[Rfam]
Whalefall-1 RNA: a 59-nucleotide RNA sequence from Gracilimonas mengyeensis. Rfam 15.1 lists 134 matches to the family in 26 species. A search with the family's covariance model found it, with a score of 44 bits. Taxonomically the source falls in Gracilimonas (Bacteria, Balneolota, Balneolales, Balneolaceae). The family's RNA type in Rfam is small RNA.

RNA sequence: UUAUCUCUCUUUGGAGAGAGACAGAAUGUGCAGCUCGCUGCAUCAUUCAGUGAGAGGGA
Numbered sequence: 001u002u003a004u005c006u007c008u009c010u011u012u013g014g015a016g017a018g019a020g021a022c023a024g025a026a027u028g029u030g031c032a033g034c035u036c037g038c039u040g041c042a043u044c045a046u047u048c049a050g051u052g053a054g055a056g057g058g059a
Stems, first nucleotide, its partner, number of pairs: 004021007024048004029042005